[Rfam]
RNA sequence: CCGGGUGCUGACGCACCCGGCAAAGGGCUGUCGCCGCUCCGCGGCU
Numbered sequence: 001c002c003g004g005g006u007g008c009u010g011a012c013g014c015a016c017c018c019g020g021c022a023a024a025g026g027g028c029u030g031u032c033g034c035c036g037c038u039c040c041g042c043g044g045c046u
Base pairs, nucleotide, nucleotide: 001020002019003018004017005016006015007014008013033045034044035043036042037041

The family of this 46-nucleotide RNA sequence from Rubripirellula obstinata is "Acido-Lenti-1 RNA". Lineage of the source: Bacteria > Planctomycetota > Pirellulales > Pirellulaceae > Rubripirellula. Rfam classes the family as a small RNA. A search with the family's covariance model found it, with a score of 39 bits. The family has 87 seed sequences and 2,607 matches in Rfam 15.1. The base pairs follow the family's consensus structure, which is taken from published work.